Annotation
Streptomyces sRNA 4677: a 255-nucleotide RNA. The base pairs follow the family's consensus structure. It scores 174 bits against the family's covariance model. Rfam's curators write: Located in the intergenic region between anti-sigma factor SCO4677 gene and a putative regulatory protein gene SCO4676. scr4677 expression requires the SCO4677 activity and scr4677 sRNA itself seem to affect the levels of the SCO4676-associated transcripts. By type it is a small RNA.
RNA sequence: GUCUCCGGUGCCGUCGGCGCUCUCCCUGAAGCAAGCACUGGGAAAAAAGGACCGCACCAAACCCCACCCCUCCCUCCCGCCGGGCAAACUCACCCCCGCGGGUGAAUAUGCCCAGUGGGCCGGAUAUCGGCCCUGUUGUCUGGCUUACGCUCGGCGCCGACAGCAGCUGACCGAUCCCAGACAUGGAACGGCCCUCGCCGGGACUGGCACUCCCGGUGCGAGGGCCUGACCACCGAGGAAGUAGAGGCCUUCCCG
Numbered sequence: 001g002u003c004u005c006c007g008g009u010g011c012c013g014u015c016g017g018c019g020c021u022c023u024c025c026c027u028g029a030a031g032c033a034a035g036c037a038c039u040g041g042g043a044a045a046a047a048a049g050g051a052c053c054g055c056a057c058c059a060a061a062c063c064c065c066a067c068c069c070c071u072c073c074c075u076c077c078c079g080c081c082g083g084g085c086a087a088a089c090u091c092a093c094c095c096c097c098g099c100g101g102g103u104g105a106a107u108a109u110g111c112c113c114a115g116u117g118g119g120c121c122g123g124a125u126a127u128c129g130g131c132c133c134u135g136u137u138g139u140c141u142g143g144c145u146u147a148c149g150c151u152c153g154g155c156g157c158c159g160a161c162a163g164c165a166g167c168u169g170a171c172c173g174a175u176c177c178c179a180g181a182c183a184u185g186g187a188a189c190g191g192c193c194c195u196c197g198c199c200g201g202g203a204c205u206g207g208c209a210c211u212c213c214c215g216g217u218g219c220g221a222g223g224g225c226c227u228g229a230c231c232a233c234c235g236a237g238g239a240a241g242u243a244g245a246g247g248c249c250u251u252c253c254c255g
Stems, first nucleotide, its partner, number of pairs: 007234004016077002019074001090105006119155005190226005196220003200214004237253005